The family of this 79-nucleotide RNA sequence from Loa loa is "SmY spliceosomal RNA". For this family Rfam cites "A novel family of C. elegans snRNPs contains proteins associated with trans-splicing" (MacMorris et al., RNA, 2007). The family's consensus secondary structure is taken from published work. NCBI's taxonomy places the organism under Eukaryota, Opisthokonta, Metazoa, Eumetazoa, Loa. A search with the family's covariance model found it, with a score of 57 bits.
[Rfam]
RNA sequence: UCCCUGUCUAAUCUUUGUCCAGGGCCUUAUCCAAGACCCGGGGAAUAAUUUUUGGCUGCCCUCCCAGGAGGGAGGGCAA
Numbered sequence: 001u002c003c004c005u006g007u008c009u010a011a012u013c014u015u016u017g018u019c020c021a022g023g024g025c026c027u028u029a030u031c032c033a034a035g036a037c038c039c040g041g042g043g044a045a046u047a048a049u050u051u052u053u054g055g056c057u058g059c060c061c062u063c064c065c066a067g068g069a070g071g072g073a074g075g076g077c078a079a
Stems, first nucleotide, its partner, number of pairs: 022039003026035003057078009